[Rfam]
RNA sequence: GAUACGCACGGCGACUGGCGUACGGAGAACCAACUCCGGGGGAGUCGUGCGCGCUCGACCGCAUACAGGGCCGCUCGCCUGGGCCUCGCGG
Numbered sequence: 001g002a003u004a005c006g007c008a009c010g011g012c013g014a015c016u017g018g019c020g021u022a023c024g025g026a027g028a029a030c031c032a033a034c035u036c037c038g039g040g041g042g043a044g045u046c047g048u049g050c051g052c053g054c055u056c057g058a059c060c061g062c063a064u065a066c067a068g069g070g071c072c073g074c075u076c077g078c079c080u081g082g083g084c085c086u087c088g089c090g091g
Stems, first nucleotide, its partner, number of pairs: 003053001005051008015041002017079004024037004068086005
RNA: ZMP/ZTP riboswitch aptamer (pfl RNA motif)
Organism: Streptomyces sp. NRRL F-4428